Shown here is a 162-nucleotide RNA sequence, a member of the family "RAGATH-9 RNA". It is one of the family's seed sequences. The base pairs follow the family's consensus structure, which is taken from published work. A reference for the family is Weinberg et al. (2015), "New classes of self-cleaving ribozymes revealed by comparative genomics analysis", Nat Chem Biol.
RNA sequence: UCAGUCAACCAAGAACCAUUUAUGACCAAACCCCUAAAGGGAGAUCUCAUAGGAGACACAAGUACCUACGGACUAUACAACGGUCAACCAAUUAACAUUGGUCAGAAGAAGGAUAUGGGUCAUCUACGAAUAAGAAAUACGAAUAAGUAGAAUGGUUCUUUU
Numbered sequence: 001u002c003a004g005u006c007a008a009c010c011a012a013g014a015a016c017c018a019u020u021u022a023u024g025a026c027c028a029a030a031c032c033c034c035u036a037a038a039g040g041g042a043g044a045u046c047u048c049a050u051a052g053g054a055g056a057c058a059c060a061a062g063u064a065c066c067u068a069c070g071g072a073c074u075a076u077a078c079a080a081c082g083g084u085c086a087a088c089c090a091a092u093u094a095a096c097a098u099u100g101g102u103c104a105g106a107a108g109a110a111g112g113a114u115a116u117g118g119g120u121c122a123u124c125u126a127c128g129a130a131u132a133a134g135a136a137a138u139a140c141g142a143a144u145a146a147g148u149a150g151a152a153u154g155g156u157u158c159u160u161u162u
Base pairs, nucleotide, nucleotide: 011160012159013158014157015156016155017154018153023122024121025120026119027118038067039066045056046055047054048053071085072084073083074082087102088101089100090099091098092097123151124150125149126148127147